[Rfam]
Notes
Pseudomonas sRNA P9: an 84-nucleotide RNA sequence from Paraburkholderia tropica. The family's consensus secondary structure was predicted with RNAalifold. Rfam's curators write: This small RNA (sRNA) was computationally identified in the genome of the opportunistic pathogen Pseudomonas aeruginosa and its expression verified by northern blot analysis. P9 appears to be conserved in several Pseudomonas species in addition to Bordetella spp. In both Pseudomonas and Bordetella spp P9 appears to be located upstream of a predicted threonine dehydratase gene. P9 has a predicted Rho independent terminator at the 3' end but the function of P9 is unknown. This sRNA also appears to be present in the Betaproteobacteria (Burkholderia and Ralstonia species).

RNA sequence: CUGAUUAUUCGCACCAUUCCUCGAAUGGUGGGUUAGCGUACGACUGGCAAAAACGACAACGACCCGCCCCACGAGGCGGGUUUU
Numbered sequence: 001c002u003g004a005u006u007a008u009u010c011g012c013a014c015c016a017u018u019c020c021u022c023g024a025a026u027g028g029u030g031g032g033u034u035a036g037c038g039u040a041c042g043a044c045u046g047g048c049a050a051a052a053a054c055g056a057c058a059a060c061g062a063c064c065c066g067c068c069c070c071a072c073g074a075g076g077c078g079g080g081u082u083u084u
Stems, first nucleotide, its partner, number of pairs: 012030006061082008